The family of this 359-nucleotide part of an RNA from Methanosphaerula palustris is "Archaeal large subunit ribosomal RNA".
The organism belongs to Methanosphaerula palustris, within Archaea.
Gene Ontology terms of the family: structural constituent of ribosome and ribosome.
The sequence is in the family's curated seed alignment.

RNA sequence: CGGAUUUAAUUGUGUUAAGGGAACUCGGCAAAUUGGCCCCGUAACUUCGGAAUAAGGGGUGCCUGCCUGGAGAUCAGGCAGGUCGCAGUGACCAGGGAGCUCUAACUGUCUAAUAACAACAUAGCAGACUGCAACUCCGUAAGGACUAGUAUAGUCUGUGAUUCCUGCCCAGUGCAAGUAUCUGAACACCCGGUUCAACGGGACGAAGGACUUGUAAACGGCGGGGGUAACUAUGACCCUCUUAAGGUAGCGUAGUACCUUGUCGCUUAAUUGGCGACUUGCAUGAAUGGAUUAAUGAGAGCUCUACUGUCCCUAACACAAAUCCGUUGAACUUUUUGUCCUAGUGCAGAGACUAGGGA
Dot-bracket structure: ((((.....((((((((.(((..............(((((....(....).....)))))(((((((((.....)))))))))(...).......(((((((((..(((.........)))..(((((((((...(((....)))...)..))))))))...(((.(((..(((((((..(((.....((((......)))).....))))))))..)))))((((((.......))))))(...)...............((((((.....))))))..........)))....)).)))))))....))).)))))))).)))).............(((((........)))))..
Numbered sequence: 001c002g003g004a005u006u007u008a009a010u011u012g013u014g015u016u017a018a019g020g021g022a023a024c025u026c027g028g029c030a031a032a033u034u035g036g037c038c039c040c041g042u043a044a045c046u047u048c049g050g051a052a053u054a055a056g057g058g059g060u061g062c063c064u065g066c067c068u069g070g071a072g073a074u075c076a077g078g079c080a081g082g083u084c085g086c087a088g089u090g091a092c093c094a095g096g097g098a099g100c101u102c103u104a105a106c107u108g109u110c111u112a113a114u115a116a117c118a119a120c121a122u123a124g125c126a127g128a129c130u131g132c133a134a135c136u137c138c139g140u141a142a143g144g145a146c147u148a149g150u151a152u153a154g155u156c157u158g159u160g161a162u163u164c165c166u167g168c169c170c171a172g173u174g175c176a177a178g179u180a181u182c183u184g185a186a187c188a189c190c191c192g193g194u195u196c197a198a199c200g201g202g203a204c205g206a207a208g209g210a211c212u213u214g215u216a217a218a219c220g221g222c223g224g225g226g227g228u229a230a231c232u233a234u235g236a237c238c239c240u241c242u243u244a245a246g247g248u249a250g251c252g253u254a255g256u257a258c259c260u261u262g263u264c265g266c267u268u269a270a271u272u273g274g275c276g277a278c279u280u281g282c283a284u285g286a287a288u289g290g291a292u293u294a295a296u297g298a299g300a301g302c303u304c305u306a307c308u309g310u311c312c313c314u315a316a317c318a319c320a321a322a323u324c325c326g327u328u329g330a331a332c333u334u335u336u337u338g339u340c341c342u343a344g345u346g347c348a349g350a351g352a353c354u355a356g357g358g359a
Stems, first nucleotide, its partner, number of pairs: 001326004010321008019312003036060005045050001061083009084088001096305007103297002107121003124159008132149001136145003163291003167222003172219002174215005181210003189202004223241006242246001262278006340357005